Shown here is a 101-nucleotide RNA sequence from Bacillus taeanensis, a member of the family "SAM riboswitch aptamer (S box leader)". Pairs were carried over by alignment from the consensus structure, which is taken from published work.
RNA sequence: CUCUUAUCGAGAGCAGGCGGAGGGACUAGCCCUAUGAAGCCCGGCAACCGGCUGUAAAAGUACGGUGCUAAUUCUAACAGCAGUAAGCUGAAAGAUGAGAG
Numbered sequence: 001c002u003c004u005u006a007u008c009g010a011g012a013g014c015a016g017g018c019g020g021a022g023g024g025a026c027u028a029g030c031c032c033u034a035u036g037a038a039g040c041c042c043g044g045c046a047a048c049c050g051g052c053u054g055u056a057a058a059a060g061u062a063c064g065g066u067g068c069u070a071a072u073u074c075u076a077a078c079a080g081c082a083g084u085a086a087g088c089u090g091a092a093a094g095a096u097g098a099g100a101g
Stems, first nucleotide, its partner, number of pairs: 001101008013042001016041003022032003027076003043069004048065002050061001052060002073093001078090004